[Rfam]
RNA: Small nucleolar RNA SNORD70
Organism: Sorex araneus
RNA sequence: UCCAUUGUUGUCAAUGAUGUAUUGUUGGAACUGAAUUAAAGUGAUCGACUGCAUAAUUCGUCACUACCACUGAGACAACAAUGAA
Numbered sequence: 001u002c003c004a005u006u007g008u009u010g011u012c013a014a015u016g017a018u019g020u021a022u023u024g025u026u027g028g029a030a031c032u033g034a035a036u037u038a039a040a041g042u043g044a045u046c047g048a049c050u051g052c053a054u055a056a057u058u059c060g061u062c063a064c065u066a067c068c069a070c071u072g073a074g075a076c077a078a079c080a081a082u083g084a085a
Stems, first nucleotide, its partner, number of pairs: 001085001003083010